[Rfam]
RNA sequence: GAGGCUUGAACCAUCAGUGGUCUUGUGAUCCGUUGGUAAAUUUUGAGUCGAAUCACAGCCAACUGGUGGUUCAGCUUGC
Numbered sequence: 001g002a003g004g005c006u007u008g009a010a011c012c013a014u015c016a017g018u019g020g021u022c023u024u025g026u027g028a029u030c031c032g033u034u035g036g037u038a039a040a041u042u043u044u045g046a047g048u049c050g051a052a053u054c055a056c057a058g059c060c061a062a063c064u065g066g067u068g069g070u071u072c073a074g075c076u077u078g079c
Stems, first nucleotide, its partner, number of pairs: 003077002006074003011069002014066005020060001022058002025056005031050002033047002
The record is a 79-nucleotide RNA sequence from Setaria digitata, which matches "mir-250 microRNA precursor family" in Rfam. Gene Ontology terms of the family: miRNA-mediated post-transcriptional gene silencing and RISC complex. On this family, see de Wit et al., Genome Res 2009: "Repertoire and evolution of miRNA genes in four divergent nematode species".